The family of this 81-nucleotide sequence from Alicyclobacillus acidoterrestris is "ZMP/ZTP riboswitch aptamer (pfl RNA motif)".
[Rfam]
RNA sequence: AACUUCAGUAGUGACUGGCGAGUUACAUGGAAACCCAUGAGGGAACUACUGUCGAAAAAGCCGUACGCCUGGGCGAUGAGA
Numbered sequence: 001a002a003c004u005u006c007a008g009u010a011g012u013g014a015c016u017g018g019c020g021a022g023u024u025a026c027a028u029g030g031a032a033a034c035c036c037a038u039g040a041g042g043g044a045a046c047u048a049c050u051g052u053c054g055a056a057a058a059a060g061c062c063g064u065a066c067g068c069c070u071g072g073g074c075g076a077u078g079a080g081a
Stems, first nucleotide, its partner, number of pairs: 003054001006051007015042002017069004027038004060074003

Source information:
The source organism's lineage runs through Bacteria, Bacilli, Caryophanales, Alicyclobacillaceae and Alicyclobacillus. The base pairs follow the family's consensus structure, which is taken from published work. Rfam links the family to the GO terms one-carbon metabolic process and regulation of purine nucleotide biosynthetic process.